[Rfam]
RNA sequence: GCGUCCGCCCCGUGGGACGCCCGCGCCCACUGCGGUCCGCCCGGCUACUCUGGCUCCGUGCGCCUUCCACCGGAAGACGCAAAGCCGACAGCCGUCGCAUCCCUGGGAGUACAUCCAUG
Numbered sequence: 001g002c003g004u005c006c007g008c009c010c011c012g013u014g015g016g017a018c019g020c021c022c023g024c025g026c027c028c029a030c031u032g033c034g035g036u037c038c039g040c041c042c043g044g045c046u047a048c049u050c051u052g053g054c055u056c057c058g059u060g061c062g063c064c065u066u067c068c069a070c071c072g073g074a075a076g077a078c079g080c081a082a083a084g085c086c087g088a089c090a091g092c093c094g095u096c097g098c099a100u101c102c103c104u105g106g107g108a109g110u111a112c113a114u115c116c117a118u119g
Base pairs, nucleotide, nucleotide: 059081060080061079062078064076065075066074067073084098085097087096088095089094
A member of the RNA family "Streptomyces-metH RNA" from Streptomyces lunaelactis, 119 nucleotides long. The base pairs follow the family's consensus structure, which is taken from published work. The source organism's lineage runs through Bacteria, Bacillati, Actinomycetes, Kitasatosporales and Streptomyces. It scores 107 bits against the family's covariance model. By type it is a small RNA.